[Rfam]
RNA: permuted transfer-messenger RNA
RNA sequence: GACGAUAAACGAAUUUCGUAAUAACCAUUACGGACGUGGGGGCAGUACCCACCACCUCCACCAUUUUCAACUUAUGGGGGUGAAUUAGGAUCGACGGGUGUCUAAAAGUUGUUCUUUCGUUCGGUAUUGUUCCGCCGUGAUGGGCUAAUUUAUAAAUGCUAACGAAAGUUACGCACUUGCAGCUUAA
Numbered sequence: 001g002a003c004g005a006u007a008a009a010c011g012a013a014u015u016u017c018g019u020a021a022u023a024a025c026c027a028u029u030a031c032g033g034a035c036g037u038g039g040g041g042g043c044a045g046u047a048c049c050c051a052c053c054a055c056c057u058c059c060a061c062c063a064u065u066u067u068c069a070a071c072u073u074a075u076g077g078g079g080g081u082g083a084a085u086u087a088g089g090a091u092c093g094a095c096g097g098g099u100g101u102c103u104a105a106a107a108g109u110u111g112u113u114c115u116u117u118c119g120u121u122c123g124g125u126a127u128u129g130u131u132c133c134g135c136c137g138u139g140a141u142g143g144g145c146u147a148a149u150u151u152a153u154a155a156a157u158g159c160u161a162a163c164g165a166a167a168g169u170u171a172c173g174c175a176c177u178u179g180c181a182g183c184u185u186a187a
Stems, first nucleotide, its partner, number of pairs: 001121005014111001017108001026100003031096002036052005053082007122137004